[Rfam]
Shown here is a 59-nucleotide sequence from Atractosteus spatula, a member of the family "U7 small nuclear RNA". The base pairs follow the family's consensus structure, which was predicted with PFOLD.
RNA sequence: CGGAAUUUUUUGCUGUUUUAGUAUUUGUCUGGAAGGCUUUUUGAAGUCAGGAAGCCCGU
Numbered sequence: 001c002g003g004a005a006u007u008u009u010u011u012g013c014u015g016u017u018u019u020a021g022u023a024u025u026u027g028u029c030u031g032g033a034a035g036g037c038u039u040u041u042u043g044a045a046g047u048c049a050g051g052a053a054g055c056c057c058g059u
Base pairs, nucleotide, nucleotide: 035056036055037054038053039052040051041050042049043048
Notes: From the family's description: Animal histone pre-mRNAs are spliced by a different mechanism than nuclear pre-mRNAs and self-splicing introns. The source organism's lineage runs through Eukaryota, Opisthokonta, Bilateria, Teleostomi and Atractosteus. A search with the family's covariance model found it, with a score of 39 bits.